[Rfam]
RNA sequence: GGGCCAAGGUCCCAGCGGAGAGGGUAAUAUACUGGAACGAUGCCUCUCUAACAUAUAGAAUCAAUGCCUUCGCAGAUUAAAUGUCUGCCGAAUCGUAGGAUGCCUGAAUAUCUUGUCAUUUUUUUGUGCAUUCGGAACCCUCGGCCAAAUUUUU
Numbered sequence: 001g002g003g004c005c006a007a008g009g010u011c012c013c014a015g016c017g018g019a020g021a022g023g024g025u026a027a028u029a030u031a032c033u034g035g036a037a038c039g040a041u042g043c044c045u046c047u048c049u050a051a052c053a054u055a056u057a058g059a060a061u062c063a064a065u066g067c068c069u070u071c072g073c074a075g076a077u078u079a080a081a082u083g084u085c086u087g088c089c090g091a092a093u094c095g096u097a098g099g100a101u102g103c104c105u106g107a108a109u110a111u112c113u114u115g116u117c118a119u120u121u122u123u124u125u126g127u128g129c130a131u132u133c134g135g136a137a138c139c140c141u142c143g144g145c146c147a148a149a150u151u152u153u154u
Base pairs, nucleotide, nucleotide: 003073004072006070007069008068009067011020013018022048023047024046029041030040033037087145088144089143090142091141099132100131102129103128105126106125107124108123
This 154-nucleotide sequence from Ipomoea nil belongs to the Rfam family "Small nucleolar RNA snoR145". Gene Ontology terms of the family: nucleolus and RNA processing. A reference for the family is Chen and Wu (2009), "Mining small RNA sequencing data: a new approach to identify small nucleolar RNAs in Arabidopsis", Nucleic Acids Res. It scores 81 bits against the family's covariance model. NCBI's taxonomy places the organism under Eukaryota, Streptophyta, Euphyllophyta, Gunneridae, Ipomoea.